[Rfam]
RNA sequence: CGUCCGGUUUUCGGCGGAAAAUGUUUCUAAGGGUUAGAUAAAAUAAUUUCAUUUGAGAUGACACACUCCAGGCGUGAAAGACCGCUGACAAAAGUGUCCGCACCCCCUAACGGGUUACAAAUAGGGGAGGGCGAAAGUAGGUAAAGUGACACCCCCUGACCUUCAAAAUGAACCCCCCUAAAGGGUUCGGGCUAAGUCCUUUUUAGGAUAUGCCACAACGGGGCAAGAGUUGGCUGAAAGUGACAUGAAGAGGACACGGACAGACCCCGAAAGGGGAGCAAGUAGGGCAUGCAGACGCUUGUAGAAAGUUCGUUCAAAACUUGAAAUAGUUUUGAAGUUGUAACCC
Numbered sequence: 001c002g003u004c005c006g007g008u009u010u011u012c013g014g015c016g017g018a019a020a021a022u023g024u025u026u027c028u029a030a031g032g033g034u035u036a037g038a039u040a041a042a043a044u045a046a047u048u049u050c051a052u053u054u055g056a057g058a059u060g061a062c063a064c065a066c067u068c069c070a071g072g073c074g075u076g077a078a079a080g081a082c083c084g085c086u087g088a089c090a091a092a093a094g095u096g097u098c099c100g101c102a103c104c105c106c107c108u109a110a111c112g113g114g115u116u117a118c119a120a121a122u123a124g125g126g127g128a129g130g131g132c133g134a135a136a137g138u139a140g141g142u143a144a145a146g147u148g149a150c151a152c153c154c155c156c157u158g159a160c161c162u163u164c165a166a167a168a169u170g171a172a173c174c175c176c177c178c179u180a181a182a183g184g185g186u187u188c189g190g191g192c193u194a195a196g197u198c199c200u201u202u203u204u205a206g207g208a209u210a211u212g213c214c215a216c217a218a219c220g221g222g223g224c225a226a227g228a229g230u231u232g233g234c235u236g237a238a239a240g241u242g243a244c245a246u247g248a249a250g251a252g253g254a255c256a257c258g259g260a261c262a263g264a265c266c267c268c269g270a271a272a273g274g275g276g277a278g279c280a281a282g283u284a285g286g287g288c289a290u291g292c293a294g295a296c297g298c299u300u301g302u303a304g305a306a307a308g309u310u311c312g313u314u315c316a317a318a319a320c321u322u323g324a325a326a327u328a329g330u331u332u333u334g335a336a337g338u339u340g341u342a343a344c345c346c
Stems, first nucleotide, its partner, number of pairs: 007022006060098005071086004104127005112346008152223004170188006190214003196209005256313006265276004278302006314335007

The family of this 346-nucleotide RNA sequence is "GEBRO RNA". The base pairs follow the family's consensus structure, which is taken from published work. It is annotated as a small RNA.